RNA sequence: GAUCCGAUAGUAUGGUAGAAAGAAAUAUAUGAAUCCUUCUACCAUACUAUCUAUUAUUGUUAUAAAAAACCAUUUUACCUAUACUC
Numbered sequence: 001g002a003u004c005c006g007a008u009a010g011u012a013u014g015g016u017a018g019a020a021a022g023a024a025a026u027a028u029a030u031g032a033a034u035c036c037u038u039c040u041a042c043c044a045u046a047c048u049a050u051c052u053a054u055u056a057u058u059g060u061u062a063u064a065a066a067a068a069a070c071c072a073u074u075u076u077a078c079c080u081a082u083a084c085u086c
Stems, first nucleotide, its partner, number of pairs: 006051015022035002
Rfam assigns this 86-nucleotide RNA from Cucumis sativus to the family "Plastid-psbM 3UTR RNA". The literature on the family includes a 2023 paper in Plant Commun by Richter et al., "Retrograde signaling in plants: A critical review focusing on the GUN pathway and beyond". The match comes from Rfam's covariance-model search (64 bits). Plastid psbM is a non-coding RNA (ncRNA) recognised in plastids. It was found in the three prime untranslated region (3UTR) of psbM gene, its 3UTR location suggests a role in transcript maturation. The family's consensus secondary structure was predicted with LocARNA.